[Rfam]
RNA sequence: AUAGGGUCUCACAAUGUUGCCCAGGCUGGUCUUGAACCCUUUGGCCUCAAGCAACCCUUGGCCAACAUAAGGAUUCCUGGAGGACAAAGGGUUCAAGACCAGCCUGGGCAACAUAGUGAGACCCUAU
Numbered sequence: 001a002u003a004g005g006g007u008c009u010c011a012c013a014a015u016g017u018u019g020c021c022c023a024g025g026c027u028g029g030u031c032u033u034g035a036a037c038c039c040u041u042u043g044g045c046c047u048c049a050a051g052c053a054a055c056c057c058u059u060g061g062c063c064a065a066c067a068u069a070a071g072g073a074u075u076c077c078u079g080g081a082g083g084a085c086a087a088a089g090g091g092u093u094c095a096a097g098a099c100c101a102g103c104c105u106g107g108g109c110a111a112c113a114u115a116g117u118g119a120g121a122c123c124c125u126a127u
Stems, first nucleotide, its partner, number of pairs: 007121006014114001019109007032102003
A member of the RNA family "mir-1285 microRNA precursor family" from Carlito syrichta, 127 nucleotides long. NCBI's taxonomy places the organism under Eukaryota, Chordata, Euteleostomi, Tarsiidae, Carlito. It scores 60 bits against the family's covariance model.